[Rfam]
RNA sequence: UCAGACCUUUUUGCGGUCUGGGCUUGCUGUUCAGUCUAUCCAGGAAGCCCUUACCCCAAAAAGCAUCUG
Dot-bracket structure: ......(((((((.(((..((((.(.((.............)).).))))..))).)))))))......
Background
mir-129 microRNA precursor family: a 69-nucleotide sequence from Betta splendens. The family's consensus secondary structure was predicted with RNAalifold.